A member of the RNA family "Lysine riboswitch aptamer" from Flintibacter faecis, 181 nucleotides long. Riboswitches are metabolite binding domains within certain messenger RNAs that serve as precision sensors for their corresponding targets. The base pairs follow the family's consensus structure, which is taken from published work. Gene Ontology term of the family: lysine biosynthetic process. The match comes from Rfam's covariance-model search (93 bits). NCBI's taxonomy places the organism under Bacteria, Bacillota, Clostridia, Eubacteriales, Flintibacter.
[Rfam]
RNA sequence: UAGCUAGAUAGAGGUCGCGGCUUACAGGAGUAAGCAUGGUCAGGGAGCCGGUUCCUGUUUCAGCCAUGCCGAAAGGGGACGGCCGCCGAAGGACUCCUCACCCGGCAGAGUGAGUUCUGGUCGCCAGGUUAACAGCCUUGCGACUGUCAUCAGUUUGGUCUGAUGGAGCGCUGUCUGCUUU
Numbered sequence: 001u002a003g004c005u006a007g008a009u010a011g012a013g014g015u016c017g018c019g020g021c022u023u024a025c026a027g028g029a030g031u032a033a034g035c036a037u038g039g040u041c042a043g044g045g046a047g048c049c050g051g052u053u054c055c056u057g058u059u060u061c062a063g064c065c066a067u068g069c070c071g072a073a074a075g076g077g078g079a080c081g082g083c084c085g086c087c088g089a090a091g092g093a094c095u096c097c098u099c100a101c102c103c104g105g106c107a108g109a110g111u112g113a114g115u116u117c118u119g120g121u122c123g124c125c126a127g128g129u130u131a132a133c134a135g136c137c138u139u140g141c142g143a144c145u146g147u148c149a150u151c152a153g154u155u156u157g158g159u160c161u162g163a164u165g166g167a168g169c170g171c172u173g174u175c176u177g178c179u180u181u
Base pairs, nucleotide, nucleotide: 006176007175008174009173010172011171017086018085019084020083021082022081023079025077034069035068036067037066038065039064040063090118091117092116093115094114095113096112099110101108119145120144121143122142123141124140126138127137128136129135147166148165149164150163151162152161153160